Source information: This 92-nucleotide RNA from Aythya fuligula belongs to the Rfam family "FIE3 (ftz instability element 3') element". The fushi tarazu gene is essential for the establishment of the Drosophila embryonic body plan. When first expressed in early embryogenesis, fushi tarazu mRNA is uniformly distributed over most of the embryo. Subsequently, fushi tarazu mRNA expression rapidly evolves into a pattern of seven stripes that encircle the embryo. The instability of fushi tarazu mRNA is probably crucial for attaining this localised pattern of expression. The literature on the family includes a 1996 paper in Mol Cell Biol by Riedl and Jacobs-Lorena, "Determinants of Drosophila fushi tarazu mRNA instability". Taxonomically the source falls in Aythya (Eukaryota, Vertebrata, Dipnotetrapodomorpha, Archosauria). The base pairs follow the family's consensus structure.

[Rfam]
RNA sequence: UGAUAAUGACUGAAAAACUUUGAGAUUGAAUUUUCACAUGUUUUAUUUCACAUCCCACUAACUUAACAGAGAGCAGUUUGGCACAGAUGUUA
Numbered sequence: 001u002g003a004u005a006a007u008g009a010c011u012g013a014a015a016a017a018c019u020u021u022g023a024g025a026u027u028g029a030a031u032u033u034u035c036a037c038a039u040g041u042u043u044u045a046u047u048u049c050a051c052a053u054c055c056c057a058c059u060a061a062c063u064u065a066a067c068a069g070a071g072a073g074c075a076g077u078u079u080g081g082c083a084c085a086g087a088u089g090u091u092a
Stems, first nucleotide, its partner, number of pairs: 021045006027038002